RNA sequence: AGAGUAGGCGCAGGUGGUUGCAAAUUAGGCAAGGCAGCUAAUUUGAGGAAAGUCCGGGCUUCCGAAAGACCAAACUUGCUGGGUAACGCCCAGUGCGAGCGAUCGUGAGGAUAGUGCCACAGAAAAAUACCGCCGUUUUCAUGAGGAAAUGGUAAGGGUGCAAAGGUGCGGUAAGAGCGCACCAGCAGCGCCGAGAGACGCUGGCUCGGUAAACCCCGGUUGGAAGCAAGGUCAAAGGGAUAAUGGUUGGUCUUUUCCCUAUUCCACUGCCACAGAACCGCUUGAGGCGCUUGGUAACAAUCGUCCCAGAUAGAUAACCGCCCUGAUGCGAAAACAAAAAAAGACGUAGCACCGCUACGUCUCUACGUUAUUCAUCAGAACAGAACCCGGCUUAUGUCCGACUCUUUCC
Numbered sequence: 001a002g003a004g005u006a007g008g009c010g011c012a013g014g015u016g017g018u019u020g021c022a023a024a025u026u027a028g029g030c031a032a033g034g035c036a037g038c039u040a041a042u043u044u045g046a047g048g049a050a051a052g053u054c055c056g057g058g059c060u061u062c063c064g065a066a067a068g069a070c071c072a073a074a075c076u077u078g079c080u081g082g083g084u085a086a087c088g089c090c091c092a093g094u095g096c097g098a099g100c101g102a103u104c105g106u107g108a109g110g111a112u113a114g115u116g117c118c119a120c121a122g123a124a125a126a127a128u129a130c131c132g133c134c135g136u137u138u139u140c141a142u143g144a145g146g147a148a149a150u151g152g153u154a155a156g157g158g159u160g161c162a163a164a165g166g167u168g169c170g171g172u173a174a175g176a177g178c179g180c181a182c183c184a185g186c187a188g189c190g191c192c193g194a195g196a197g198a199c200g201c202u203g204g205c206u207c208g209g210u211a212a213a214c215c216c217c218g219g220u221u222g223g224a225a226g227c228a229a230g231g232u233c234a235a236a237g238g239g240a241u242a243a244u245g246g247u248u249g250g251u252c253u254u255u256u257c258c259c260u261a262u263u264c265c266a267c268u269g270c271c272a273c274a275g276a277a278c279c280g281c282u283u284g285a286g287g288c289g290c291u292u293g294g295u296a297a298c299a300a301u302c303g304u305c306c307c308a309g310a311u312a313g314a315u316a317a318c319c320g321c322c323c324u325g326a327u328g329c330g331a332a333a334a335c336a337a338a339a340a341a342a343g344a345c346g347u348a349g350c351a352c353c354g355c356u357a358c359g360u361c362u363c364u365a366c367g368u369u370a371u372u373c374a375u376c377a378g379a380a381c382a383g384a385a386c387c388c389g390g391c392u393u394a395u396g397u398c399c400g401a402c403u404c405u406u407u408c409c
Base pairs, nucleotide, nucleotide: 001405002404003403004402005401007399008398010397011396012395013322014321015320016319017318018317019316021045022044023043024042025041026040027039028038050393051392052391054390055389056388057387058386059226060225061224062223068259073221074220075219077218078217079093080092081091082090083089094108095106096105097104098103109216110215114214115213116210117209118208130157131156132153133152134151135150136149137148138147139146140145165183166182167181168180169179170178185205186203187202188201189200190199192197230279231278232277241269242268244266245265250264253261286305287304288303289302291300292299293298
Dot-bracket structure: (((((.((.((((((((((.((((((((.........))))))))....[[[.[[[[[((((.....[....(((.(((((((.....)))))(((((....)))).)((...(((((...........(((((((((((....)))))))))..)).......((((((.......)))))).((((((.(....).))))).)..)))..))))))))).))))...(((........((.((....(..(.....].)..))).)).......)))......((((.(((....))).))))..........)))))))...............................................................]]]]]]]].))))).)))))....